[Rfam]
RNA sequence: GUUGAGGGGAACGUUGUCUGGUUCGAGACCAUUCAAUUCAAAGUUCCAGGCUUCAUCUGAACGAUCUCAGACCAGGCUUCAUUCCCCUCAAC
Numbered sequence: 001g002u003u004g005a006g007g008g009g010a011a012c013g014u015u016g017u018c019u020g021g022u023u024c025g026a027g028a029c030c031a032u033u034c035a036a037u038u039c040a041a042a043g044u045u046c047c048a049g050g051c052u053u054c055a056u057c058u059g060a061a062c063g064a065u066c067u068c069a070g071a072c073c074a075g076g077c078u079u080c081a082u083u084c085c086c087c088u089c090a091a092c
Stems, first nucleotide, its partner, number of pairs: 001092011013080001016077006025068002
The record is a 92-nucleotide sequence from Gossypium anomalum, which matches "mir-166 microRNA precursor family" in Rfam. The match comes from Rfam's covariance-model search (75 bits). The base pairs follow the family's consensus structure, which was predicted with PFOLD. Gene Ontology terms of the family: RISC complex and miRNA-mediated post-transcriptional gene silencing. Rfam describes the family as follows. This family represents the plant microRNA (miRNA) precursor mir-166. The family has 31 seed sequences and 2,599 matches in Rfam 15.1. The source organism's lineage runs through Eukaryota, Spermatophyta, Gunneridae, Malvales and Gossypium. On this family, see Reinhart et al., Genes Dev 2002: "MicroRNAs in plants".